This 99-nucleotide RNA from Arabis alpina belongs to the Rfam family "Small nucleolar RNA Z266".
RNA sequence: GGAGGAAUGGUUUUUGUAUGAUGAUUCAAUUAGAUGUGUGAAUGGUUUCAUUAUGAGCUCAAAAUAUUUAUUUGGCAAUAUUAACAUCUCCAUUUCUCC
Number, nucleotide and partner (000 for none) at each position: 001g099002g098003a097004g096005g095006a094007a093008u092009g091010g090011u000012u000013u000014u000015u000016g000017u000018a000019u000020g000021a000022u000023g000024a000025u000026u000027c000028a000029a000030u000031u000032a000033g000034a000035u000036g000037u000038g000039u000040g000041a000042a000043u000044g000045g000046u000047u000048u000049c000050a000051u000052u000053a000054u000055g000056a000057g000058c000059u000060c000061a000062a000063a000064a000065u000066a000067u000068u000069u000070a000071u000072u000073u000074g000075g000076c000077a000078a000079u000080a000081u000082u000083a000084a000085c000086a000087u000088c000089u000090c010091c009092a008093u007094u006095u005096c004097u003098c002099c001
Overview:
Gene Ontology terms of the family: RNA processing and nucleolus. The literature on the family includes a 2003 paper in Nucleic Acids Res by Chen et al., "The high diversity of snoRNAs in plants: identification and comparative study of 120 snoRNA genes from Oryza sativa". Rfam classes the family as a C/D-box small nucleolar RNA.